The record is a 61-nucleotide part of an RNA from Cladonia borealis, which matches "Eukaryotic large subunit ribosomal RNA" in Rfam. Rfam links the family to the GO terms structural constituent of ribosome and ribosome. Clan: LSU clan.
RNA sequence: CGUGGGGGUCAGUGACGAAGCCUUGGGAGUGAUCCCGGGUAGAACGGCCCCUAGUGCAGAU
Numbered sequence: 001c002g003u004g005g006g007g008g009u010c011a012g013u014g015a016c017g018a019a020g021c022c023u024u025g026g027g028a029g030u031g032a033u034c035c036c037g038g039g040u041a042g043a044a045c046g047g048c049c050c051c052u053a054g055u056g057c058a059g060a061u
Stems, first nucleotide, its partner, number of pairs: 001056001003053008012045002020040002026035003